[Rfam]
RNA sequence: CAACAAACAGGAACGUGGCAGGCCAUUGAUUGUCAUUUAUCAUUAUAGUGGUUCAACAACAUGAUCCGAGA
Numbered sequence: 001c002a003a004c005a006a007a008c009a010g011g012a013a014c015g016u017g018g019c020a021g022g023c024c025a026u027u028g029a030u031u032g033u034c035a036u037u038u039a040u041c042a043u044u045a046u047a048g049u050g051g052u053u054c055a056a057c058a059a060c061a062u063g064a065u066c067c068g069a070g071a
Base pairs, nucleotide, nucleotide: 010067011066012065014063015062016061017060022052023051024050025049026048029044031042032041

A member of the RNA family "Trypanosomatid snoRNA TB10cs1H3" from Angomonas deanei, 71 nucleotides long.
The literature on the family includes a 2005 paper in RNA by Liang et al., "A genome-wide analysis of C/D and H/ACA-like small nucleolar RNAs in Trypanosoma brucei reveals a trypanosome-specific pattern of rRNA modification".
Pairs were carried over by alignment from the consensus structure, which was predicted with WAR.
The match comes from Rfam's covariance-model search (50 bits).
It is annotated as an H/ACA-box small nucleolar RNA.